The record is a 159-nucleotide sequence from Erwinia sp. OLSSP12, which matches "Glm Y RNA activator of glmS mRNA" in Rfam. The family is grouped with related families in Rfam's "Glm clan". For this family Rfam cites "Computational identification of noncoding RNAs in E. coli by comparative genomics" (Rivas et al., Curr Biol, 2001).
RNA sequence: UGUUGCUCAUUCUCCUGUCUAUGAUGUUCCGCCGUACUGGCCUGGUGCUCAUAAAAAUGGAAUGAUGCACAAAACGGUGCCUGUCGUCCUCCAGACCGAUAAGCGUGCUUUACGGCCGUUAUCAAGCAUUGGACGCAACGUUGAGUUAGGCACCACCUA
Number, nucleotide and partner (000 for none) at each position: 001u000002g000003u000004u000005g068006c067007u065008c064009a063010u062011u061012c060013u000014c000015c000016u000017g000018u000019c000020u053021a052022u051023g050024a049025u000026g048027u047028u000029c000030c000031g000032c000033c000034g000035u000036a000037c000038u000039g000040g000041c000042c000043u000044g000045g000046u000047g027048c026049u024050c023051a022052u021053a020054a000055a000056a000057a000058u000059g000060g012061a011062a010063u009064g008065a007066u000067g006068c005069a000070c000071a000072a000073a000074a000075c000076g154077g153078u152079g151080c150081c149082u148083g000084u000085c135086g134087u133088c132089c131090u000091c000092c000093a000094g000095a000096c000097c000098g123099a122100u121101a120102a119103g000104c000105g000106u000107g000108c000109u000110u000111u000112a000113c000114g000115g000116c000117c000118g000119u102120u101121a100122u099123c098124a000125a000126g000127c000128a000129u000130u000131g089132g088133a087134c086135g085136c000137a147138a146139c145140g000141u000142u000143g000144a000145g139146u138147u137148a082149g081150g080151c079152a078153c077154c076155a000156c000157c000158u000159a000

Notes: The family's RNA type in Rfam is small RNA. Rfam describes the family as follows. This family consists of a number of bacterial RNA genes of around 167 bases in length. The tke1 RNA gene is present in Escherichia coli, Shigella flexneri, Yersinia pestis and Salmonella species where it is found between the yfhK and purL genes. The function of this RNA is unknown. Taxonomically the source falls in Erwinia (Bacteria, Pseudomonadati, Pseudomonadota, Enterobacterales).